[Rfam]
RNA: L31-Actinobacteria ribosomal protein leader
Organism: Kribbella antiqua
RNA sequence: UUGGUUCCGGUUCACGUCCGCAUCCGCGGGCGACCCGGGGCACC
Numbered sequence: 001u002u003g004g005u006u007c008c009g010g011u012u013c014a015c016g017u018c019c020g021c022a023u024c025c026g027c028g029g030g031c032g033a034c035c036c037g038g039g040g041c042a043c044c
Stems, first nucleotide, its partner, number of pairs: 003044003007038004015032007